[Rfam]
Nucleotides: 072
Base pairs, nucleotide, nucleotide: 014026016024017023031068033066034062035061038057039056040055044053046051
Number, partner (000 for none) and nucleotide at each position: 001000c002000u003000u004000c005000a006000g007000c008000g009000a010000c011000c012000c013000g014026a015000g016024c017023c018000a019000c020000a021000g022000c023017g024016g025000a026014u027000g028000c029000u030000g031068u032000g033066c034062c035061g036000g037000c038057c039056u040055g041000c042000g043000u044053c045000c046051g047000u048000a049000g050000g051046u052000c053044g054000c055040c056039a057038g058000c059000a060000g061035c062034g063000c064000c065000u066033g067000g068031g069000c070000c071000u072000c